RNA sequence: GAGUUCAUCUCUGUGGCGAGACUAAGGAGUGUAUCUCCGUAGUCAGAGAGAAAUCAAAAUGCUCGCAGUCCCUUUAUUGGGAUCAGGAGUUGGGUGUGAAAGCGCCCGGAGUCACAGGGGUGAGACCCGAAACCAGGCGAUCUAGCCCGGGGUAGGGUGAAGCCGAUCCUCGGAUUGGUGGAAGCCCGCACCGAUUCUGCCGUACAAUGCGUUCGGAUGACCUUGGGCUAGGGGUGAAAGGCCCAUCUAGCCUGGCGACAGCUGGUU
Numbered sequence: 001g002a003g004u005u006c007a008u009c010u011c012u013g014u015g016g017c018g019a020g021a022c023u024a025a026g027g028a029g030u031g032u033a034u035c036u037c038c039g040u041a042g043u044c045a046g047a048g049a050g051a052a053a054u055c056a057a058a059a060u061g062c063u064c065g066c067a068g069u070c071c072c073u074u075u076a077u078u079g080g081g082a083u084c085a086g087g088a089g090u091u092g093g094g095u096g097u098g099a100a101a102g103c104g105c106c107c108g109g110a111g112u113c114a115c116a117g118g119g120g121u122g123a124g125a126c127c128c129g130a131a132a133c134c135a136g137g138c139g140a141u142c143u144a145g146c147c148c149g150g151g152g153u154a155g156g157g158u159g160a161a162g163c164c165g166a167u168c169c170u171c172g173g174a175u176u177g178g179u180g181g182a183a184g185c186c187c188g189c190a191c192c193g194a195u196u197c198u199g200c201c202g203u204a205c206a207a208u209g210c211g212u213u214c215g216g217a218u219g220a221c222c223u224u225g226g227g228c229u230a231g232g233g234g235u236g237a238a239a240g241g242c243c244c245a246u247c248u249a250g251c252c253u254g255g256c257g258a259c260a261g262c263u264g265g266u267u
Base pairs, nucleotide, nucleotide: 005123006122007121008120009119010118011117012116013115014114015113016112017111020044021043022042023041026038027037028036029035048055049054061090062089063088064087068083069082070081071080093106094105095104096103126265127264129262133255134254135253136252137251138250142231143230144229145228146227147226148225149224150223151222152221153219155187156186157185158184162179163178164177165176166175167174168173191216192215193214194213197211199210200209233243234242235241
RNA: Archaeal large subunit ribosomal RNA, nucleotides 673 to 939